[Rfam]
Rfam assigns this 61-nucleotide RNA sequence from Pristionchus pacificus to the family "mir-8364 microRNA precursor family".
RNA sequence: UCUUCAUUUCUUACGCUCUUUCACCGGUCAGAAAGACGAAAGAGCACGCGAAAUGAAGAGA
Numbered sequence: 001u002c003u004u005c006a007u008u009u010c011u012u013a014c015g016c017u018c019u020u021u022c023a024c025c026g027g028u029c030a031g032a033a034a035g036a037c038g039a040a041a042g043a044g045c046a047c048g049c050g051a052a053a054u055g056a057a058g059a060g061a
Stems, first nucleotide, its partner, number of pairs: 001059007010050001012048001015045003019041004
NCBI's taxonomy places the organism under Eukaryota, Opisthokonta, Protostomia, Rhabditida, Pristionchus.